FMN riboswitch aptamer (RFN element): a 118-nucleotide sequence from Ancylomarina longa. Taxonomically the source falls in Ancylomarina (Bacteria, Bacteroidota, Bacteroidia, Marinilabiliales). About the family: The RFN element is a highly conserved domain that is found frequently in the 5'-untranslated regions of prokaryotic mRNAs that encode for flavin mononucleotide (FMN) biosynthesis and transport proteins. The family's consensus secondary structure is taken from published work.
RNA sequence: UUGUUUCUUCAGGGCAGGGUGAGAUUCCCGACCGGCGGUAAAGUCCGCGAAUCUUUAAUUAGAUUGAACUGGUGUGAUUCCAGUACCGACAGUAUAGUCUGGAUGGGAGAAGAAAAAC
Numbered sequence: 001u002u003g004u005u006u007c008u009u010c011a012g013g014g015c016a017g018g019g020u021g022a023g024a025u026u027c028c029c030g031a032c033c034g035g036c037g038g039u040a041a042a043g044u045c046c047g048c049g050a051a052u053c054u055u056u057a058a059u060u061a062g063a064u065u066g067a068a069c070u071g072g073u074g075u076g077a078u079u080c081c082a083g084u085a086c087c088g089a090c091a092g093u094a095u096a097g098u099c100u101g102g103a104u105g106g107g108a109g110a111a112g113a114a115a116a117a118c
Stems, first nucleotide, its partner, number of pairs: 004115007017029003031098002033088002035048004043086002051064003068084005090101003